Rfam assigns this 87-nucleotide RNA sequence from Tumebacillus flagellatus to the family "Group II catalytic intron D1-D4-1".
Pairs were carried over by alignment from the consensus structure.
It scores 61 bits against the family's covariance model.
Nucleotides: 087
Stems, first nucleotide, its partner, number of pairs: 001026002005023004010019003039046002048087003057080005
Number, partner (000 for none) and nucleotide at each position: 001026u002025a003000a004000c005023u006022u007021g008020c009000a010019a011018u012017c013000g014000a015000a016000a017012g018011a019010u020008g021007c022006a023005a024000c025002u026001g027000a028000a029000c030000u031000g032000g033000c034000a035000g036000g037000a038000g039046u040045c041000a042000g043000c044000a045040g046039a047000a048087g049086c050085c051000a052000u053000a054000g055000u056000a057080c058079c059078u060077g061076u062000g063000a064000g065000g066000a067000g068000a069000c070000g071000u072000c073000u074000g075000a076061a077060c078059a079058g080057g081000g082000a083000a084000g085050g086049g087048c